The family of this 87-nucleotide RNA sequence is "freshwater-2 RNA".

RNA sequence: UUUUGCACAAAGCAAAAGACUUAUGCGGAAACAAACCGCGUACCCAGGAGAACUGGGAUUGGACUCCUUUAAAGGAGAAACAAAAUG
Numbered sequence: 001u002u003u004u005g006c007a008c009a010a011a012g013c014a015a016a017a018g019a020c021u022u023a024u025g026c027g028g029a030a031a032c033a034a035a036c037c038g039c040g041u042a043c044c045c046a047g048g049a050g051a052a053c054u055g056g057g058a059u060u061g062g063a064c065u066c067c068u069u070u071a072a073a074g075g076a077g078a079a080a081c082a083a084a085a086u087g
Stems, first nucleotide, its partner, number of pairs: 001017006022042007043057004